Rfam assigns this 35-nucleotide sequence to the family "DUF805b RNA". The family's consensus secondary structure is taken from published work. By type it is a cis-regulatory element. Its Rfam clan is "DUF805 clan".
RNA sequence: AAGGCGGAGUCCGAAAAGCCUGAACAGAGUAGGAA
Dot-bracket structure: .((((....[[[.....))))..........]]].